[Rfam]
The record is a 140-nucleotide RNA from Brucella rhizosphaerae, which matches "Alphaproteobacterial sRNA ar35" in Rfam. It is annotated as a small RNA.
RNA sequence: AUAAUUUUUUGGGCGAGGUUCUAAACCACUUCGCCCAGAUAAUUGAGCCAAGAGAUUUGUCUCCGACCUUUGACCACGGAUGUACUGGCAUUGAUCGUUGAGACAAUAUGAAGGUCGGGUUUCACCCGGCCUUUUUUAUU
Numbered sequence: 001a002u003a004a005u006u007u008u009u010u011g012g013g014c015g016a017g018g019u020u021c022u023a024a025a026c027c028a029c030u031u032c033g034c035c036c037a038g039a040u041a042a043u044u045g046a047g048c049c050a051a052g053a054g055a056u057u058u059g060u061c062u063c064c065g066a067c068c069u070u071u072g073a074c075c076a077c078g079g080a081u082g083u084a085c086u087g088g089c090a091u092u093g094a095u096c097g098u099u100g101a102g103a104c105a106a107u108a109u110g111a112a113g114g115u116c117g118g119g120u121u122u123c124a125c126c127c128g129g130c131c132u133u134u135u136u137u138a139u140u
Stems, first nucleotide, its partner, number of pairs: 001043001002041002011036005057106006065096002068093001071090002074088003108139002110134009120124001